Rfam assigns this 102-nucleotide sequence from Solitalea longa to the family "SAM riboswitch aptamer (S box leader)". Rfam links the family to the GO term regulation of gene expression.
RNA sequence: CGCUUAUAAAGAAAGACGGAGGGAAUAGACCCGGUGAAGUCUUGGCAACCUGUGCUUACAAGGUGCCAAAUUCUAUCCCGAAUCUUCGGGAGAAGAUGAGCA
Dot-bracket structure: .((((((.....(((((...(((..[[[[)))......)))))((((.(((((....))).))))))...(]]]]((((((....))))))..).)))))).
Numbered sequence: 001c002g003c004u005u006a007u008a009a010a011g012a013a014a015g016a017c018g019g020a021g022g023g024a025a026u027a028g029a030c031c032c033g034g035u036g037a038a039g040u041c042u043u044g045g046c047a048a049c050c051u052g053u054g055c056u057u058a059c060a061a062g063g064u065g066c067c068a069a070a071u072u073c074u075a076u077c078c079c080g081a082a083u084c085u086u087c088g089g090g091a092g093a094a095g096a097u098g099a100g101c102a
Stems, first nucleotide, its partner, number of pairs: 002101006013043005021032003026075004044067004049063002051060003071094001076091006

Overview: The base pairs follow the family's consensus structure, which is taken from published work. Taxonomically the source falls in Solitalea (Bacteria, Pseudomonadati, Bacteroidota, Sphingobacteriia).